[Rfam]
RNA sequence: CACCCGGCCGGGUCCCGUGGGGGGAAUCCGCUCCGGGGAUAUGGGAAGCGCCCCGUUCGCCGAC
Numbered sequence: 001c002a003c004c005c006g007g008c009c010g011g012g013u014c015c016c017g018u019g020g021g022g023g024g025a026a027u028c029c030g031c032u033c034c035g036g037g038g039a040u041a042u043g044g045g046a047a048g049c050g051c052c053c054c055g056u057u058c059g060c061c062g063a064c
Stems, first nucleotide, its partner, number of pairs: 001062001003037005009030005014024003043053003